Description: The family of this 60-nucleotide RNA sequence is "Plastid-ccsA-ndhD-2 3UTR RNA".

RNA sequence: GGUCUUUGUGAGAACCAUGUAAAUCAAGUAGUGUAAUAAUUAACAUGGUUCUCGCCGGUU
Number, nucleotide and partner (000 for none) at each position: 001g000002g000003u000004c000005u000006u000007u000008g055009u054010g053011a052012g051013a050014a049015c048016c047017a046018u045019g044020u043021a000022a041023a040024u039025c000026a037027a000028g000029u000030a000031g000032u000033g000034u000035a000036a000037u026038a000039a024040u023041u022042a000043a020044c019045a018046u017047g016048g015049u014050u013051c012052u011053c010054g009055c008056c000057g000058g000059u000060u000

Rfam's curators put it in the seed alignment. A reference for the family is Stern and Gruissem (1987), "Control of plastid gene expression: 3' inverted repeats act as mRNA processing and stabilizing elements, but do not terminate transcription", Cell. Plastid ccsA-ndhD-2 is a non-coding RNA (ncRNA) recognised in plastids. It was found in the three prime untranslated region (3UTR) of ccsA and ndhD genes, its 3UTR location suggests a role in transcript maturation.